tRNA: an 84-nucleotide RNA sequence from Thalassolituus maritimus. The family's consensus secondary structure is taken from published work. Its Rfam clan is "tRNA clan". About the family: Transfer RNA (tRNA) molecules are approximately 80 nucleotides in length. Their secondary structure includes four short double-helical elements and three loops (D, anti-codon, and T loops). It scores 49 bits against the family's covariance model.

RNA sequence: GCCCAGGUGGUGGAAUUGGUAGACACGCUGUGUUCAGGUCGCAGUGAGCUUACGCUCGUGGGAGUUCGAGUCUCCCCCUGGGCA
Number, nucleotide and partner (000 for none) at each position: 001g083002c082003c081004c080005a079006g078007g077008u000009g000010g026011u025012g024013g000014a000015a000016u000017u000018g000019g000020u000021a000022g000023a000024c012025a011026c010027g000028c044029u043030g042031u041032g040033u000034u000035c000036a000037g000038g000039u000040c032041g031042c030043a029044g028045u000046g000047a000048g000049c000050u000051u000052a000053c000054g000055c000056u000057c000058g000059u000060g076061g075062g074063a073064g072065u000066u000067c000068g000069a000070g000071u000072c064073u063074c062075c061076c060077c007078c006079u005080g004081g003082g002083c001084a000